[Rfam]
RNA sequence: CACUCAUCGAGACCGGCGGAGGGAUAGGCCCUUUGAUGCCGGGGCAACCUGCGGGAAGCGUUCCCGCCACGGUGCCAAUUCCUGCGGGGCGCGUGAGCGCCACCGAGAGAUGGGCG
Numbered sequence: 001c002a003c004u005c006a007u008c009g010a011g012a013c014c015g016g017c018g019g020a021g022g023g024a025u026a027g028g029c030c031c032u033u034u035g036a037u038g039c040c041g042g043g044g045c046a047a048c049c050u051g052c053g054g055g056a057a058g059c060g061u062u063c064c065c066g067c068c069a070c071g072g073u074g075c076c077a078a079u080u081c082c083u084g085c086g087g088g089g090c091g092c093g094u095g096a097g098c099g100c101c102a103c104c105g106a107g108a109g110a111u112g113g114g115c116g
Base pairs, nucleotide, nucleotide: 001116003114004113005112006111007110008109013042014041015040016039017038021031022030023029025084026083027082028081043076044075045074046073048072049071051067052066053065054064055063080108085105086104087103089101
The family of this 116-nucleotide RNA sequence from Frateuria terrea is "SAM riboswitch aptamer (S box leader)". Gene Ontology term of the family: regulation of gene expression. It scores 79 bits against the family's covariance model. Its Rfam clan is "SAM clan".